[Rfam]
RNA sequence: UACCUGCGUAGAGGCGCAGCGCUUAUCAGUACAUCGGGGCAGGGUGAUGCCGUUUAUCCCGAUGGAAAGGAAGCGUUGCCGAAGUGUUCGGCUCUAUCAAGAGCCAGGCGCUGGGAUCAGUACCGAAAGGGCUGAUACUGUCACGACUCCCGAGUCGUGAUGCGCUACUGCUGGG
Numbered sequence: 001u002a003c004c005u006g007c008g009u010a011g012a013g014g015c016g017c018a019g020c021g022c023u024u025a026u027c028a029g030u031a032c033a034u035c036g037g038g039g040c041a042g043g044g045u046g047a048u049g050c051c052g053u054u055u056a057u058c059c060c061g062a063u064g065g066a067a068a069g070g071a072a073g074c075g076u077u078g079c080c081g082a083a084g085u086g087u088u089c090g091g092c093u094c095u096a097u098c099a100a101g102a103g104c105c106a107g108g109c110g111c112u113g114g115g116a117u118c119a120g121u122a123c124c125g126a127a128a129g130g131g132c133u134g135a136u137a138c139u140g141u142c143a144c145g146a147c148u149c150c151c152g153a154g155u156c157g158u159g160a161u162g163c164g165c166u167a168c169u170g171c172u173g174g175g
Base pairs, nucleotide, nucleotide: 008168009167010166011165016079017078018077019076020075021074022073023072024071032064033063034062035061036060037059038058039057083112084111085110086109087108088107090105091104092103093102094101113139114138116136117135118134119133120132121131123129141160142159143158144157145156146155147154
Shown here is a 175-nucleotide RNA sequence from Oceanimonas doudoroffii, a member of the family "Lysine riboswitch aptamer". A search with the family's covariance model found it, with a score of 118 bits. The base pairs follow the family's consensus structure, which is taken from published work. The organism belongs to Oceanimonas, within Bacteria.